[Rfam]
RNA sequence: UAUAACGCAGUUCGAAACCAUCCUGCGAAAAAAAACUAGGAGGAU
Numbered sequence: 001u002a003u004a005a006c007g008c009a010g011u012u013c014g015a016a017a018c019c020a021u022c023c024u025g026c027g028a029a030a031a032a033a034a035a036c037u038a039g040g041a042g043g044a045u
Base pairs, nucleotide, nucleotide: 006027007026008025009024010023016037
Rfam assigns this 45-nucleotide RNA sequence from Hujiaoplasma nucleasis to the family "PreQ1 (pre queuosine) riboswitch aptamer". The pairing is the family consensus, mapped onto this sequence. This family is a bacterial riboswitch that binds to the metabolite preQ1, an intermediate in the biosynthesis of the modified nucleoside queuosine from GTP. One example of this riboswitch is located in the leader of the Bacillus subtilis ykvJKLM (queCDEF) operon which encodes four genes necessary for queuosine production. PreQ1 binding to the riboswitch aptamer is thought to induce premature transcription termination within the leader to down-regulate expression of these genes. NCBI's taxonomy places the organism under Bacteria, Mycoplasmatota, Mollicutes, Candidatus Izemoplasmatales, Hujiaoplasma. The literature on the family includes a 2009 paper in J Biol Chem by Spitale et al., "The structural basis for recognition of the PreQ0 metabolite by an unusually small riboswitch aptamer domain".